HIV gag stem loop 3 (GSL3): an 84-nucleotide RNA from Lentivirus humimdef1. The sequence is in the family's curated seed alignment. The literature on the family includes a 2004 paper in J Mol Biol by Damgaard et al., "RNA interactions in the 5' region of the HIV-1 genome". About the family: This family consists of several HIV gag stem loop 3 (GSL3) sequences. GSL3 is known to direct specific packaging of HIV-1 genomic RNA. Deletion of GSL3 leads to decreases in both viral RNA packaging and dimerisation. Rfam links the family to the GO term viral RNA genome packaging. It is annotated as a cis-regulatory element.

RNA sequence: GGCCAGGGGGAAAGACACUAUAUAAACUAAAACAUAUAAUAUGGGCAAGCAGGGAGCUAGAGCGAUUCGCAGUUAAUCCUGGCC
Dot-bracket structure: ((((((((....................................................................))))))))